SAM riboswitch aptamer (S box leader): a 111-nucleotide RNA sequence from Gracilibacillus boraciitolerans. The source organism's lineage runs through Bacteria, Bacillati, Bacillaceae, Gracilibacillus and Gracilibacillus boraciitolerans. The match comes from Rfam's covariance-model search (77 bits).

RNA sequence: CUCUUAUUUAGAGUGGCAGAGGGAAUAGGCCUGUGAAGCCCGGCAACCGUCAGUUUGAACAACAAAUUGAAAAGGUGCUACAUCCUACAGGUUAGACCUGAAAGAUAAGAG
Numbered sequence: 001c002u003c004u005u006a007u008u009u010a011g012a013g014u015g016g017c018a019g020a021g022g023g024a025a026u027a028g029g030c031c032u033g034u035g036a037a038g039c040c041c042g043g044c045a046a047c048c049g050u051c052a053g054u055u056u057g058a059a060c061a062a063c064a065a066a067u068u069g070a071a072a073a074g075g076u077g078c079u080a081c082a083u084c085c086u087a088c089a090g091g092u093u094a095g096a097c098c099u100g101a102a103a104g105a106u107a108a109g110a111g
Base pairs, nucleotide, nucleotide: 001111002110003109004108005107006106007105008104013041015040016039017038021031022030028084042079043078044077045076047075048074050070051069052068053067054066055065056064083103088100089099090098091097092096